[Rfam]
RNA sequence: UUCUUAUCAAGAGAGGUAGAGGGGAUGGCCCAGGGACACCUCAGCAACCUUCAAUGCCAUGUAUUGAAAAGGUGCUAAUUCCAGCAAGUUUAUAUAUAAACUUGAAAGAUAAGAA
Numbered sequence: 001u002u003c004u005u006a007u008c009a010a011g012a013g014a015g016g017u018a019g020a021g022g023g024g025a026u027g028g029c030c031c032a033g034g035g036a037c038a039c040c041u042c043a044g045c046a047a048c049c050u051u052c053a054a055u056g057c058c059a060u061g062u063a064u065u066g067a068a069a070a071g072g073u074g075c076u077a078a079u080u081c082c083a084g085c086a087a088g089u090u091u092a093u094a095u096a097u098a099a100a101c102u103u104g105a106a107a108g109a110u111a112a113g114a115a
Stems, first nucleotide, its partner, number of pairs: 001115008013042005021031003026083003043076004048072002050068006080107001085104006
The record is a 115-nucleotide sequence from Niallia endozanthoxylica, which matches "SAM riboswitch aptamer (S box leader)" in Rfam.